[Rfam]
RNA sequence: UAACCAGAGCCGGGAGGCUCUGCUGAAUCCGCAGGAGUCAGCAGAGGCCAUAGUACGCGAGUACGGGACGCCGGAAAACGGAAGGGC
Numbered sequence: 001u002a003a004c005c006a007g008a009g010c011c012g013g014g015a016g017g018c019u020c021u022g023c024u025g026a027a028u029c030c031g032c033a034g035g036a037g038u039c040a041g042c043a044g045a046g047g048c049c050a051u052a053g054u055a056c057g058c059g060a061g062u063a064c065g066g067g068a069c070g071c072c073g074g075a076a077a078a079c080g081g082a083a084g085g086g087c
Stems, first nucleotide, its partner, number of pairs: 001025002005022007038045002047087003056080002062076001
The record is an 87-nucleotide RNA from Cohnella rhizosphaerae, which matches "Group II catalytic intron D1-D4-1" in Rfam. For this family Rfam cites "Control of branch-site choice by a group II intron" (Chu et al., EMBO J, 2001). Rfam links the family to the GO term Group II intron splicing. Rfam's curators write: Group II introns are found in rRNA, tRNA and mRNA of organelles in fungi, plants and protists, and also in mRNA in bacteria.